[Rfam]
Shown here is a 398-nucleotide sequence from Poindextera montana, a member of the family "Bacterial RNase P class A". On this family, see Frank and Pace, Annu Rev Biochem 1998: "Ribonuclease P: unity and diversity in a tRNA processing ribozyme". It scores 289 bits against the family's covariance model.
RNA sequence: UCAGACGGCCGGGCGGUCGCGGUCCUCGCCCGAAAGGGCUGGGAUCGAGGAAAGUCCGGGCUCCACGGCGAAUAGGCGGCGGGUAACGCCCGCCGGGGGCGACCCCAGGGAAAGCGCCACAGAAAGCAAACCGCCACAAGGGCUUAGGUCCUUGUGGUAAGGGUGAAAGGGUGGGGUAAGAGCCCACCGCGGACCCGGCGACGGGGACGGCAUGGCAAGCCCCGCCUGGAGCAAGACCGAAUAGGGACGUCGCGCCGAGGCUCGCCUCGGCAGGGCUUCGCCGGCCCGAGGCGUCCGGGUUGGUCGCGAGAACCGUCCAGCAAUGGCCGGUCCAGAGGAAUGACCGCCGCGCCCUUUUCGGGGCGGCACAGAACCCGGCUUACAGGCCGUCUGAUCCG
Numbered sequence: 001u002c003a004g005a006c007g008g009c010c011g012g013g014c015g016g017u018c019g020c021g022g023u024c025c026u027c028g029c030c031c032g033a034a035a036g037g038g039c040u041g042g043g044a045u046c047g048a049g050g051a052a053a054g055u056c057c058g059g060g061c062u063c064c065a066c067g068g069c070g071a072a073u074a075g076g077c078g079g080c081g082g083g084u085a086a087c088g089c090c091c092g093c094c095g096g097g098g099g100c101g102a103c104c105c106c107a108g109g110g111a112a113a114g115c116g117c118c119a120c121a122g123a124a125a126g127c128a129a130a131c132c133g134c135c136a137c138a139a140g141g142g143c144u145u146a147g148g149u150c151c152u153u154g155u156g157g158u159a160a161g162g163g164u165g166a167a168a169g170g171g172u173g174g175g176g177u178a179a180g181a182g183c184c185c186a187c188c189g190c191g192g193a194c195c196c197g198g199c200g201a202c203g204g205g206g207a208c209g210g211c212a213u214g215g216c217a218a219g220c221c222c223c224g225c226c227u228g229g230a231g232c233a234a235g236a237c238c239g240a241a242u243a244g245g246g247a248c249g250u251c252g253c254g255c256c257g258a259g260g261c262u263c264g265c266c267u268c269g270g271c272a273g274g275g276c277u278u279c280g281c282c283g284g285c286c287c288g289a290g291g292c293g294u295c296c297g298g299g300u301u302g303g304u305c306g307c308g309a310g311a312a313c314c315g316u317c318c319a320g321c322a323a324u325g326g327c328c329g330g331u332c333c334a335g336a337g338g339a340a341u342g343a344c345c346g347c348c349g350c351g352c353c354c355u356u357u358u359c360g361g362g363g364c365g366g367c368a369c370a371g372a373a374c375c376c377g378g379c380u381u382a383c384a385g386g387c388c389g390u391c392u393g394a395u396c397c398g
Stems, first nucleotide, its partner, number of pairs: 001394010011383001012348007020047007028039003052381003056378005061231004068282001074227005079093005094108001095106004109222002114220002116216003131162002133158011170188006189211001190209002194205004235305004245296006273287005312331004317326003